[Rfam]
Overview
A member of the RNA family "Plastid-psbA-1 3UTR RNA" from Beta vulgaris, 118 nucleotides long. The base pairs follow the family's consensus structure, which was predicted with LocARNA. The family is grouped with related families in Rfam's "Plastid-psbA 3UTR RNA clan". Plastid psbA-1 is a non-coding RNA (ncRNA) present in plastids. It was identified in inverted repeat sequences in the 3 prime untranslate region (3UTR) of photosystem II quinone-binding protein (psbA). By type it is a cis-regulatory element.

RNA sequence: UGAAAGCUCCAUCUACAAAUGGAUAAAAUUUCAUUUUUAGUUUAUUGUAUAUAGGUUAUCAAAAGUAAAGGGGCAACGCCGGUUUCUUGUUCUGUCAAGAAUUGGUUAUUGCUCCUUU
Numbered sequence: 001u002g003a004a005a006g007c008u009c010c011a012u013c014u015a016c017a018a019a020u021g022g023a024u025a026a027a028a029u030u031u032c033a034u035u036u037u038u039a040g041u042u043u044a045u046u047g048u049a050u051a052u053a054g055g056u057u058a059u060c061a062a063a064a065g066u067a068a069a070g071g072g073g074c075a076a077c078g079c080c081g082g083u084u085u086c087u088u089g090u091u092c093u094g095u096c097a098a099g100a101a102u103u104g105g106u107u108a109u110u111g112c113u114c115c116u117u118u
Base pairs, nucleotide, nucleotide: 008023009022010021011020012019067118068117069116070115071114072113073112074111075110076109078107080104081103082102084101085100086099087098088097